[Rfam]
This 90-nucleotide sequence from Cicer arietinum belongs to the Rfam family "Small nucleolar RNA snR60/Z15/Z230/Z193/J17". Rfam classes the family as a C/D-box small nucleolar RNA. On this family, see Lowe and Eddy, Science 1999: "A computational screen for methylation guide snoRNAs in yeast". The family has 23 seed sequences and 3,592 matches in Rfam 15.1.
RNA sequence: GAGGGUCAUAUGAUGAUCAUAUGCAUAGUUCAACUGAUCUAUUUGUGAUUAUACAAAUUUUUAGUCUUUCGCUCCUAUCUGAUGACUCCU
Numbered sequence: 001g002a003g004g005g006u007c008a009u010a011u012g013a014u015g016a017u018c019a020u021a022u023g024c025a026u027a028g029u030u031c032a033a034c035u036g037a038u039c040u041a042u043u044u045g046u047g048a049u050u051a052u053a054c055a056a057a058u059u060u061u062u063a064g065u066c067u068u069u070c071g072c073u074c075c076u077a078u079c080u081g082a083u084g085a086c087u088c089c090u
Stems, first nucleotide, its partner, number of pairs: 004087005